[Rfam]
RNA: mir-7 microRNA precursor family
RNA sequence: CGACCCGGACGCCCUGGAAGACUAGUGAUUUUGUUGUUGUACAUUUUCUGCUUUGACAACAAGUCACAGUCUACCUCAGCGCUCAGGUUC
Numbered sequence: 001c002g003a004c005c006c007g008g009a010c011g012c013c014c015u016g017g018a019a020g021a022c023u024a025g026u027g028a029u030u031u032u033g034u035u036g037u038u039g040u041a042c043a044u045u046u047u048c049u050g051c052u053u054u055g056a057c058a059a060c061a062a063g064u065c066a067c068a069g070u071c072u073a074c075c076u077c078a079g080c081g082c083u084c085a086g087g088u089u090c
Stems, first nucleotide, its partner, number of pairs: 002089004007084002010081003016075002019072005025067007033060006